[Rfam]
RNA sequence: GAUGGCGAUGACGACUCCAUAAAUUCAAGCUCAACAGACCGGAAUGCAGGGCUUUCUCUUUCUCGAGAUUGCUUUGCGUGUCGACAACCCCGCUGAACCGAGCCUC
Numbered sequence: 001g002a003u004g005g006c007g008a009u010g011a012c013g014a015c016u017c018c019a020u021a022a023a024u025u026c027a028a029g030c031u032c033a034a035c036a037g038a039c040c041g042g043a044a045u046g047c048a049g050g051g052c053u054u055u056c057u058c059u060u061u062c063u064c065g066a067g068a069u070u071g072c073u074u075u076g077c078g079u080g081u082c083g084a085c086a087a088c089c090c091c092g093c094u095g096a097a098c099c100g101a102g103c104c105u106c
Base pairs, nucleotide, nucleotide: 001106002105004104005103006102
Source information:
Small nucleolar RNA Z107/R87: a 106-nucleotide RNA from Rhodamnia argentea. The family's RNA type in Rfam is C/D-box small nucleolar RNA. NCBI's taxonomy places the organism under Eukaryota, Mesangiospermae, rosids, Myrtaceae, Rhodamnia. Pairs were carried over by alignment from the consensus structure, which was predicted with RNAfold.